[Rfam]
Nucleotides: 075
Stems, first nucleotide, its partner, number of pairs: 003075006010026005040069003044066002047063005
Number, partner (000 for none) and nucleotide at each position: 001000a002000u003075g004074c005073a006072u007071c008070c009000a010026a011025c012024a013023g014022g015000a016000g017000u018000u019000g020000a021000a022014c023013c024012u025011g026010u027000g028000a029000a030000u031000u032000c033000g034000c035000c036000a037000a038000u039000u040069a041068u042067g043000a044066g045065u046000c047063g048062g049061g050060u051059g052000c053000u054000u055000u056000a057000a058000c059051c060050g061049u062048u063047c064000a065045g066044c067042c068041a069040u070008g071007g072006a073005u074004g075003c
This 75-nucleotide RNA sequence from Ceratopteris richardii belongs to the Rfam family "Plastid-ycf2 5UTR RNA". Lineage of the source: Eukaryota > Viridiplantae > Streptophyta > Polypodiopsida > Ceratopteris. About the family: Plastid ycf2 is a non-coding RNA (ncRNA) recognised in plastids. It was found in the prime untranslated region (5UTR) of ycf2 genes, it presents a tRNA-like motif which suggests it can be involved in mRNA maturation, particularly involved in defining the precise 5' end of the transcript. The family has 204 seed sequences and 3,521 matches in Rfam 15.1.